Description: MIR158 microRNA precursor family: an 85-nucleotide RNA sequence from Arabidopsis thaliana. The literature on the family includes a 2006 paper in Genome Res by Lu et al., "MicroRNAs and other small RNAs enriched in the Arabidopsis RNA-dependent RNA polymerase-2 mutant". The family's consensus secondary structure was predicted with RNAalifold. It is one of the family's seed sequences. Rfam 15.1 lists 27 matches to the family in 15 species.
RNA sequence: AUCUCUGUGCUUCUUUGUCUACACUUUUGGAAAAGGUGAUGAUAUCAUUGCUUUUCCCCAAAUGUAGACAAAGCAAUACCGUGAU
Number, nucleotide and partner (000 for none) at each position: 001a085002u084003c083004u000005c081006u000007g079008u078009g077010c000011u075012u000013c073014u072015u071016u070017g069018u068019c067020u066021a065022c064023a000024c000025u062026u061027u060028u000029g058030g057031a000032a055033a054034a000035g052036g051037u050038g049039a048040u047041g046042a000043u000044a000045u000046c041047a040048u039049u038050g037051c036052u035053u000054u033055u032056c000057c030058c029059c000060a027061a026062a025063u000064g022065u021066a020067g019068a018069c017070a016071a015072a014073g013074c000075a011076a000077u009078a008079c007080c000081g005082u000083g003084a002085u001